[Rfam]
RNA sequence: UGGCGCCCAACGUGGGGCUUGGAUACUGAGGCAGCAGUGAGGGAGACAGGUGAAAAGGAACCUGUUCGACAAAUUUUGAGACAUAUCGGAGCCGUCGUGGGAACCUGCCUCGGCUGAAACCGAAAGUAAGUGGAAACAUCCGAUCAUGGGGCAAGAAUUGAGUCAGCAUGAGCUUUAUGUUAAGCAGUUAAAAGAGGCUUUAAAGACAUGGGGAGUAAAGGUUAAAACUACAGAUUUAUUUCAUUUCUUUGAUUUUAUAAAGGACACUUGUCCCU
Numbered sequence: 001u002g003g004c005g006c007c008c009a010a011c012g013u014g015g016g017g018c019u020u021g022g023a024u025a026c027u028g029a030g031g032c033a034g035c036a037g038u039g040a041g042g043g044a045g046a047c048a049g050g051u052g053a054a055a056a057g058g059a060a061c062c063u064g065u066u067c068g069a070c071a072a073a074u075u076u077u078g079a080g081a082c083a084u085a086u087c088g089g090a091g092c093c094g095u096c097g098u099g100g101g102a103a104c105c106u107g108c109c110u111c112g113g114c115u116g117a118a119a120c121c122g123a124a125a126g127u128a129a130g131u132g133g134a135a136a137c138a139u140c141c142g143a144u145c146a147u148g149g150g151g152c153a154a155g156a157a158u159u160g161a162g163u164c165a166g167c168a169u170g171a172g173c174u175u176u177a178u179g180u181u182a183a184g185c186a187g188u189u190a191a192a193a194g195a196g197g198c199u200u201u202a203a204a205g206a207c208a209u210g211g212g213g214a215g216u217a218a219a220g221g222u223u224a225a226a227a228c229u230a231c232a233g234a235u236u237u238a239u240u241u242c243a244u245u246u247c248u249u250u251g252a253u254u255u256u257a258u259a260a261a262g263g264a265c266a267c268u269u270g271u272c273c274c275u
Base pairs, nucleotide, nucleotide: 006031007030012026013025014024037047038046083127084126086123087122093116096112097111099109100108137151139150140149141148142147159202160201161200162198163197164196209251210250211249212248213247214246215245219237220236221235222234223233260275262273263272264271265270
Rfam assigns this 275-nucleotide RNA sequence from Nannospalax galili to the family "Mason-Pfizer monkey virus packaging signal". A reference for the family is Mustafa et al. (2004), "Mutational analysis of the predicted secondary RNA structure of the Mason-Pfizer monkey virus packaging signal", Virus Res. From the family's description: This family represents a group of sequences that are related to the Mason-Pfizer monkey virus (MPMV) packaging signal. The match comes from Rfam's covariance-model search (171 bits). Taxonomically the source falls in Nannospalax (Eukaryota, Eumetazoa, Vertebrata, Euteleostomi). Rfam classes the family as a cis-regulatory element. Pairs were carried over by alignment from the consensus structure, which was predicted with PFOLD.